[Rfam]
RNA sequence: AUGUGUGUGAUGUGAACAGAACAGUAUGAGAAACUGAUACUGUAAACACUUUCUAAUGUG
Dot-bracket structure: .((((......(..(......((((((.........)))))).......).)....))))
Numbered sequence: 001a002u003g004u005g006u007g008u009g010a011u012g013u014g015a016a017c018a019g020a021a022c023a024g025u026a027u028g029a030g031a032a033a034c035u036g037a038u039a040c041u042g043u044a045a046a047c048a049c050u051u052u053c054u055a056a057u058g059u060g
Stems, first nucleotide, its partner, number of pairs: 002060004012052001015050001022042006